[Rfam]
RNA sequence: AUGAAAAAGCAGAAGCACCCGCUUCUCACCUGAUUGACGCAAUUUGCAGUUAGCAGGUAUGACGAGAUCAAAACUUGGUUAUUUGAAUUCGUAGUGUGGGUGUGUCAUGCGCCCGCACUUUUUAUAUGCU
Dot-bracket structure: ..........((((((....)))))).(((.....(((((.....)).)))....)))....................................((((((((((...)))))))))).............